[Rfam]
RNA: MIR8643 microRNA precursor family
Organism: Gossypium lobatum
Nucleotides: 141
Base pairs, nucleotide, nucleotide: 004138005137006136007135008134009133010132011131012130013129014128015127016126017125018124020122021121022120023119024118025117026116027115028114029113030112031111033109034108035107036106037105038104039103040102041101042100043099044098045097046096048094049093051091057086
Number, partner (000 for none) and nucleotide at each position: 001000g002000u003000a004138u005137c006136u007135u008134u009133u010132a011131a012130c013129a014128u015127a016126u017125u018124a019000a020122g021121a022120a023119g024118u025117c026116g027115a028114a029113u030112u031111g032000a033109c034108a035107g036106u037105g038104a039103a040102g041101a042100a043099a044098g045097a046096a047000g048094u049093a050000g051091g052000a053000a054000g055000u056000c057086g058000a059000a060000a061000g062000c063000c064000a065000u066000c067000a068000u069000u070000g071000c072000c073000u074000a075000u076000a077000a078000u079000c080000a081000a082000a083000a084000c085000c086057c087000a088000u089000a090000u091051c092000a093049u094048g095000a096046u097045u098044c099043u100042u101041u102040c103039u104038u105037c106036a107035c108034u109033g110000c111031c112030a113029a114028u115027u116026c117025g118024a119023c120022u121021u122020c123000c124018u125017g126016a127015u128014a129013u130012g131011u132010u133009a134008a135007a136006a137005g138004a139000a140000a141000u